Record summary
Rfam assigns this 87-nucleotide sequence from Clostridium botulinum to the family "SAM riboswitch aptamer (S box leader)". Rfam's curators put it in the seed alignment. The family's consensus secondary structure is taken from published work.
RNA sequence: UGCUUAUCUAGAGUGGCGGAGGGACUGGCCCUUUGAAGCCCAGCAACCUAUAUUUAUUAUGUGGUGCUAAUUCCAGACAGAUGAGGA
Numbered sequence: 001u002g003c004u005u006a007u008c009u010a011g012a013g014u015g016g017c018g019g020a021g022g023g024a025c026u027g028g029c030c031c032u033u034u035g036a037a038g039c040c041c042a043g044c045a046a047c048c049u050a051u052a053u054u055u056a057u058u059a060u061g062u063g064g065u066g067c068u069a070a071u072u073c074c075a076g077a078c079a080g081a082u083g084a085g086g087a
Stems, first nucleotide, its partner, number of pairs: 001087001003085006013041001015040003021031003025076004042068004047064002049061004072079001